[Rfam]
RNA sequence: AGCCCAUAUCUAAAGUAGAGUAGAUUAGUAUAGUCAGCUGAUCCUUCUAUUCUGCUGUACUUCAAAAUUGGGCCC
Dot-bracket structure: .(((((..(.(.(((((.(((((..(((.(..(((....)))..).)))..))))).))))).).)..)))))..